The record is an 80-nucleotide sequence from Desulfitobacterium dichloroeliminans, which matches "pemK RNA" in Rfam.
RNA sequence: AUAAUGCUACUUCCGCCUAGCCACAGACAUCGCAAUGGGGGCGGCUUCCAGAGAUCCUGGGAGAGGUUAAAUUCCUAUGG
Numbered sequence: 001a002u003a004a005u006g007c008u009a010c011u012u013c014c015g016c017c018u019a020g021c022c023a024c025a026g027a028c029a030u031c032g033c034a035a036u037g038g039g040g041g042c043g044g045c046u047u048c049c050a051g052a053g054a055u056c057c058u059g060g061g062a063g064a065g066g067u068u069a070a071a072u073u074c075c076u077a078u079g080g
Stems, first nucleotide, its partner, number of pairs: 012077001013044006045063003049059003064076003